[Rfam]
Nucleotides: 202
Stems, first nucleotide, its partner, number of pairs: 005197004011191010022180005031171005046155008057145003061141004067135004074128005
Number, partner (000 for none) and nucleotide at each position: 001000u002000a003000g004000g005197u006196u007195u008194g009000c010000c011191c012190u013189a014188a015187g016186u017185c018184a019183a020182a021000c022180u023179u024178a025177g026176c027000u028000a029000a030000u031171u032170u033169u034168g035167a036000c037000c038000a039000a040000g041000u042000c043000u044000a045000u046155a047154g048153a049152a050151a051150a052149a053148a054000a055000u056000a057145u058144a059143g060000c061141a062140a063139c064138a065000a066000c067135u068134a069133u070132a071000c072000u073000a074128c075127c076126g077125a078124g079000c080000a081000u082000a083000u084000g085000c086000a087000c088000u089000a090000u091000c092000a093000a094000c095000a096000u097000a098000u099000a100000u101000u102000u103000c104000a105000u106000g107000g108000u109000g110000g111000a112000u113000u114000c115000a116000a117000u118000g119000a120000c121000a122000a123000a124078u125077u126076u127075g128074g129000u130000a131000u132070u133069g134068u135067a136000a137000a138064u139063g140062u141061u142000a143059u144058u145057a146000a147000u148053u149052u150051u151050u152049u153048u154047c155046u156000u157000a158000u159000a160000a161000a162000u163000u164000u165000g166000g167035u168034c169033a170032a171031a172000c173000u174000u175000g176026g177025u178024u179023a180022a181000a182020u183019u184018u185017g186016a187015c188014u189013u190012a191011g192000g193000a194008c195007a196006a197005a198000c199000c200000u201000a202000a
Rfam assigns this 202-nucleotide RNA sequence from Panicum virgatum to the family "MIR1435 microRNA precursor family". A search with the family's covariance model found it, with a score of 96 bits. The base pairs follow the family's consensus structure, which was predicted with RNAalifold. The family has 3 seed sequences and 1,765 matches in Rfam 15.1.